[Rfam]
RNA sequence: CGUCAGCAUCGACAUGGUCGCGAAAAAAGUGCUUGUAGAGGCACACCACAUACUGCAGUUAAACGAGAUAUCAUCUACCUAUAACCGUAAAAAACCCCACACAUGGGGAAGACACUAUCAAUGGAGGCUAACCGUGAUGGGGUGGGACAAUGUGGAGAAGUUCUCGGAGAAGGUGGGUUUCAGACACCCUGAAAAGGCGGAGAAACUCCGGAAAAUAUUAGUUGAGGGCGGGAUCCUCAGAGACCAUACGCCGCGCACCCUUAAUGGGUGAUGAUAUGGUCCAACCCCGACCAUUCGGUCGGGCAUGCUUAAGGUAGCCAAAUGCCUUGUCGGGUGAGUUCCGACGUGCAUGAAU
Numbered sequence: 001c002g003u004c005a006g007c008a009u010c011g012a013c014a015u016g017g018u019c020g021c022g023a024a025a026a027a028a029g030u031g032c033u034u035g036u037a038g039a040g041g042c043a044c045a046c047c048a049c050a051u052a053c054u055g056c057a058g059u060u061a062a063a064c065g066a067g068a069u070a071u072c073a074u075c076u077a078c079c080u081a082u083a084a085c086c087g088u089a090a091a092a093a094a095c096c097c098c099a100c101a102c103a104u105g106g107g108g109a110a111g112a113c114a115c116u117a118u119c120a121a122u123g124g125a126g127g128c129u130a131a132c133c134g135u136g137a138u139g140g141g142g143u144g145g146g147a148c149a150a151u152g153u154g155g156a157g158a159a160g161u162u163c164u165c166g167g168a169g170a171a172g173g174u175g176g177g178u179u180u181c182a183g184a185c186a187c188c189c190u191g192a193a194a195a196g197g198c199g200g201a202g203a204a205a206c207u208c209c210g211g212a213a214a215a216u217a218u219u220a221g222u223u224g225a226g227g228g229c230g231g232g233a234u235c236c237u238c239a240g241a242g243a244c245c246a247u248a249c250g251c252c253g254c255g256c257a258c259c260c261u262u263a264a265u266g267g268g269u270g271a272u273g274a275u276a277u278g279g280u281c282c283a284a285c286c287c288c289g290a291c292c293a294u295u296c297g298g299u300c301g302g303g304c305a306u307g308c309u310u311a312a313g314g315u316a317g318c319c320a321a322a323u324g325c326c327u328u329g330u331c332g333g334g335u336g337a338g339u340u341c342c343g344a345c346g347u348g349c350a351u352g353a354a355u
Stems, first nucleotide, its partner, number of pairs: 329345006
Background: A member of the RNA family "Archaeal large subunit ribosomal RNA" from Candidatus Calditenuaceae archaeon HR02, 355 nucleotides of a longer RNA. The literature on the family includes a 2001 paper in Science by Yusupov et al., "Crystal structure of the ribosome at 5.5 A resolution". A search with the family's covariance model found it, with a score of 2574 bits.